[Rfam]
RNA sequence: CCUGCUGUUCCUCCAGCAGUAGCCUAAGAGUGCAGGCAACAUUGGUAACAAGUUGUCUGAAGCCACUCUGACAAUGUAACCCAAUCCGAAAGGAUGAAGCCAAGCCCGUGAGGGGGAAGCGGAACUGCGAGCAUUACGCGGUAGGGGGC
Numbered sequence: 001c002c003u004g005c006u007g008u009u010c011c012u013c014c015a016g017c018a019g020u021a022g023c024c025u026a027a028g029a030g031u032g033c034a035g036g037c038a039a040c041a042u043u044g045g046u047a048a049c050a051a052g053u054u055g056u057c058u059g060a061a062g063c064c065a066c067u068c069u070g071a072c073a074a075u076g077u078a079a080c081c082c083a084a085u086c087c088g089a090a091a092g093g094a095u096g097a098a099g100c101c102a103a104g105c106c107c108g109u110g111a112g113g114g115g116g117a118a119g120c121g122g123a124a125c126u127g128c129g130a131g132c133a134u135u136a137c138g139c140g141g142u143a144g145g146g147g148g149c
Stems, first nucleotide, its partner, number of pairs: 002019006028068005033059008042051003084095003099120002106113002124142006
Rfam assigns this 149-nucleotide RNA to the family "Group II catalytic intron D1-D4-7". Rfam's curators put it in the seed alignment. The literature on the family includes a 2001 paper in Trends Genet by Bonen and Vogel, "The ins and outs of group II introns". Rfam 15.1 lists 1,296 matches to the family in 705 species.